[Rfam]
RNA sequence: UGGGUGCUGUCUUUGGUUAUCUAGCUGUAUGAGAGUCUUCUGUCACCAUAAAGCUAGGUAACCAAAACAACAACCAU
Dot-bracket structure: ..(((..(...(((((((((((((((.((((...............)))).)))))))))))))))...)..)))..
This 77-nucleotide sequence from Branchiostoma lanceolatum belongs to the Rfam family "mir-9/mir-79 microRNA precursor family".
The family has 214 seed sequences and 5,647 matches in Rfam 15.1.
The literature on the family includes a 2002 paper in Curr Biol by Lagos-Quintana et al., "Identification of tissue-specific microRNAs from mouse".
Rfam links the family to the GO terms RISC complex and miRNA-mediated post-transcriptional gene silencing.
NCBI's taxonomy places the organism under Eukaryota, Metazoa, Cephalochordata, Leptocardii, Branchiostoma.
It scores 62 bits against the family's covariance model.